A member of the RNA family "c-di-GMP-I-GGC riboswitch aptamer" from Sulfurovum sp. AR, 78 nucleotides long. It scores 64 bits against the family's covariance model.
[Rfam]
RNA sequence: AUUGAAAAAGCUAAACCUAUUGUGAGAUAGGGGCAGAAAGCCAUGGGUCUUAUUUUUGAGAUCGCCAGGUUACCAUAG
Number, nucleotide and partner (000 for none) at each position: 001a000002u000003u075004g074005a000006a000007a000008a000009a000010g000011c036012u035013a000014a000015a000016c031017c030018u029019a028020u027021u026022g000023u000024g000025a000026g021027a020028u019029a018030g017031g016032g000033g000034c064035a012036g011037a000038a000039a071040g070041c069042c068043a000044u067045g066046g065047g062048u061049c060050u000051u000052a000053u000054u000055u000056u000057u000058g000059a000060g049061a048062u047063c000064g034065c046066c045067a044068g042069g041070u040071u039072a000073c000074c004075a003076u000077a000078g000
For this family Rfam cites "Bioinformatic analysis of riboswitch structures uncovers variant classes with altered ligand specificity" (Weinberg et al., Proc Natl Acad Sci U S A, 2017).